[Rfam]
RNA sequence: AGGAUAAUAGAGGUUCGUGAUUUAUUCACGAGUAUAAUAAUCUGUGUACAAUCAACAAAUUGGUUUGGCCGCUGAUCAGUUGAUUCAAGUACACAAAAAAUUACUUGGUUACGCAUAGCUGGCUGUUAGCCGAGUUCCUUACAUUUUGCUGACAGUUUCUUGUAACAACAGCCCGAGCUUUAAGCUUGGGCUUUUUAUU
Dot-bracket structure: ............((((((((.....)))))))).......(.(......(((((((...(((((......)))))...))))))).............)).......((((((.......(((((((((...................)))))))))...))))))...(((((((((.....))))))))).......
RNA: MicX Vibrio cholerae sRNA
Organism: Vibrio nigripulchritudo